[Rfam]
RNA sequence: AGCUGGUUUAAGUGCAGUGUGGUGUUUACAACUAACUGAUCACAGCCAGUUACAGAUUUCUUUGUUCCUUCUCUACUCCCAGUGCUUCACUUCACUAGCCAUAG
Numbered sequence: 001a002g003c004u005g006g007u008u009u010a011a012g013u014g015c016a017g018u019g020u021g022g023u024g025u026u027u028a029c030a031a032c033u034a035a036c037u038g039a040u041c042a043c044a045g046c047c048a049g050u051u052a053c054a055g056a057u058u059u060c061u062u063u064g065u066u067c068c069u070u071c072u073c074u075a076c077u078c079c080c081a082g083u084g085c086u087u088c089a090c091u092u093c094a095c096u097a098g099c100c101a102u103a104g
Base pairs, nucleotide, nucleotide: 002099003098004097005096006095007094010092011091014088016083018081019080021078030066031065032064034062035061